[Rfam]
RNA sequence: UGCAGAACGGUGAUAAGGAGUAGUAAUAGACAUUCACGUUUAGAGAGUUGACGGAUGGUGCAAGUCAAUCGUGAUAGUGACUAUGAACUCGCCUUUGAGUUGCAAAUAUGAACGAACUAGUAUUUGCCGAAUUGUCCACGAUAAGGAUGCAAGUGAGCACACAGUCUGUGCUAACUAGGGUGGUACCGCGGGAAAGUCUCUCGUCCCUUUU
Numbered sequence: 001u002g003c004a005g006a007a008c009g010g011u012g013a014u015a016a017g018g019a020g021u022a023g024u025a026a027u028a029g030a031c032a033u034u035c036a037c038g039u040u041u042a043g044a045g046a047g048u049u050g051a052c053g054g055a056u057g058g059u060g061c062a063a064g065u066c067a068a069u070c071g072u073g074a075u076a077g078u079g080a081c082u083a084u085g086a087a088c089u090c091g092c093c094u095u096u097g098a099g100u101u102g103c104a105a106a107u108a109u110g111a112a113c114g115a116a117c118u119a120g121u122a123u124u125u126g127c128c129g130a131a132u133u134g135u136c137c138a139c140g141a142u143a144a145g146g147a148u149g150c151a152a153g154u155g156a157g158c159a160c161a162c163a164g165u166c167u168g169u170g171c172u173a174a175c176u177a178g179g180g181u182g183g184u185a186c187c188g189c190g191g192g193a194a195a196g197u198c199u200c201u202c203g204u205c206c207c208u209u210u211u
Stems, first nucleotide, its partner, number of pairs: 007100002015095004026084004031079001036072003047069006103126007128140002156172006177208004188204005